[Rfam]
RNA sequence: UACCGAUGAGGAAGAAUUCCCAAAAGAUAGGAAGUGCCGUAUGACACUUUACACAACAGCGUUUUA
Numbered sequence: 001u002a003c004c005g006a007u008g009a010g011g012a013a014g015a016a017u018u019c020c021c022a023a024a025a026g027a028u029a030g031g032a033a034g035u036g037c038c039g040u041a042u043g044a045c046a047c048u049u050u051a052c053a054c055a056a057c058a059g060c061g062u063u064u065u066a
Base pairs, nucleotide, nucleotide: 014060031050032049033048034047035046036045
Dot-bracket structure: .............(................((((((........)))))).........)......

Shown here is a 66-nucleotide RNA from Daucus carota, a member of the family "Small nucleolar RNA U49". The family is grouped with related families in Rfam's "SNORD49 clan". On this family, see Brown et al., RNA 2001: "Multiple snoRNA gene clusters from Arabidopsis". Gene Ontology terms of the family: RNA processing and nucleolus. Rfam 15.1 lists 340 matches to the family in 152 species. The family's consensus secondary structure was predicted with CMfinder.